[Rfam]
RNA: Acinetobacter sRNA 11
RNA sequence: UAAAGGUACUUUAUAUAUAGCUUAGUUUAUAUUUAUAGGGCAUAAUGCCCUACAACGUAGCGGUGUCUGAUGAUUGAAAACUCUCAUAAACUAGUUUUUGGGUUUUCAAUCAUGUGACACUAUAAUCGCUAUCCCAUAAUUUAUUUAGGGAAUGGGACUCUUCACCGAGGUUGUAAAAUGAGACAAACAAUUUUAGCUGUAU
Numbered sequence: 001u002a003a004a005g006g007u008a009c010u011u012u013a014u015a016u017a018u019a020g021c022u023u024a025g026u027u028u029a030u031a032u033u034u035a036u037a038g039g040g041c042a043u044a045a046u047g048c049c050c051u052a053c054a055a056c057g058u059a060g061c062g063g064u065g066u067c068u069g070a071u072g073a074u075u076g077a078a079a080a081c082u083c084u085c086a087u088a089a090a091c092u093a094g095u096u097u098u099u100g101g102g103u104u105u106u107c108a109a110u111c112a113u114g115u116g117a118c119a120c121u122a123u124a125a126u127c128g129c130u131a132u133c134c135c136a137u138a139a140u141u142u143a144u145u146u147a148g149g150g151a152a153u154g155g156g157a158c159u160c161u162u163c164a165c166c167g168a169g170g171u172u173g174u175a176a177a178a179u180g181a182g183a184c185a186a187a188c189a190a191u192u193u194u195a196g197c198u199g200u201a202u
Base pairs, nucleotide, nucleotide: 015202016201017200018199019198020197021196022195025188026187027186028185030183039049040048041047042046051175052174053173054172055171056170058131059130060129061128062127063120064119065118066117067116070113071112073110074109075108076107077106078105079104080097083094084093132157133156134155135154136153137152140151141150142149158169159168160167
Dot-bracket structure: ..............((((((((..((((.(........((((...)))).((((((.((((((((((..((.((((((((..((........))..)......))))))).))..)))))......)))))((((((..(((......)))))))))(((......))))))))).......).))))......))))))))